Annotation: TPP riboswitch aptamer (THI element): a 111-nucleotide RNA from Heyndrickxia sporothermodurans. A search with the family's covariance model found it, with a score of 68 bits. NCBI's taxonomy places the organism under Bacteria, Bacillati, Bacilli, Caryophanales, Heyndrickxia.

RNA sequence: UAUCUACACUAGGGGUGCUGAAAAAGCUGAGAUGUGAACGUGGAAGUGCGUUCCGAUCCCUUAUUACCCGAUCUAGAUAAUACUAGCGUGGGGAAGUGUAGUAGUAUUGGU
Numbered sequence: 001u002a003u004c005u006a007c008a009c010u011a012g013g014g015g016u017g018c019u020g021a022a023a024a025a026g027c028u029g030a031g032a033u034g035u036g037a038a039c040g041u042g043g044a045a046g047u048g049c050g051u052u053c054c055g056a057u058c059c060c061u062u063a064u065u066a067c068c069c070g071a072u073c074u075a076g077a078u079a080a081u082a083c084u085a086g087c088g089u090g091g092g093g094a095a096g097u098g099u100a101g102u103a104g105u106a107u108u109g110g111u
Base pairs, nucleotide, nucleotide: 006099007098008097009096010095011061012060013059014058016055017027018026019025034054036053037052038051039050040049041048042047067092068091069090070089073086074085075084076083